Rfam assigns this 82-nucleotide sequence from Oryza sativa to the family "Small nucleolar RNA Z155".
Rfam links the family to the GO terms nucleolus and RNA processing.
Rfam's curators put it in the seed alignment.
A reference for the family is Chen et al. (2003), "The high diversity of snoRNAs in plants: identification and comparative study of 120 snoRNA genes from Oryza sativa", Nucleic Acids Res.
The pairing is the family consensus, mapped onto this sequence.
RNA sequence: AGUUGAUGUGAGGAUAAAACUUUCACAGAAACUCUUUUGAUGUGUUGACCCUAAAAUUCAGACUACAAUUAUCUGAUCAGCU
Numbered sequence: 001a002g003u004u005g006a007u008g009u010g011a012g013g014a015u016a017a018a019a020c021u022u023u024c025a026c027a028g029a030a031a032c033u034c035u036u037u038u039g040a041u042g043u044g045u046u047g048a049c050c051c052u053a054a055a056a057u058u059c060a061g062a063c064u065a066c067a068a069u070u071a072u073c074u075g076a077u078c079a080g081c082u
Stems, first nucleotide, its partner, number of pairs: 001082006